[Rfam]
RNA sequence: CCACGGGUACGUCCCCCCACCGGGACGCAGCCGUCUGCAAGGUCGGCAUUU
Numbered sequence: 001c002c003a004c005g006g007g008u009a010c011g012u013c014c015c016c017c018c019a020c021c022g023g024g025a026c027g028c029a030g031c032c033g034u035c036u037g038c039a040a041g042g043u044c045g046g047c048a049u050u051u
Stems, first nucleotide, its partner, number of pairs: 010027006031046003035042002
The record is a 51-nucleotide sequence from Eilatimonas milleporae, which matches "serC leader" in Rfam.
A reference for the family is Corbino et al. (2005), "Evidence for a second class of S-adenosylmethionine riboswitches and other regulatory RNA motifs in alpha-proteobacteria", Genome Biol.
NCBI's taxonomy places the organism under Bacteria, Pseudomonadota, Alphaproteobacteria, Kordiimonadaceae, Eilatimonas.
From the family's description: This family is a putative regulatory RNA structure that is found upstream of the serC-serA operon in some alpha-proteobacteria. The final stem of the structure overlaps the ribosome binding site of the serC reading frame.
The pairing is the family consensus, mapped onto this sequence.
A search with the family's covariance model found it, with a score of 38 bits.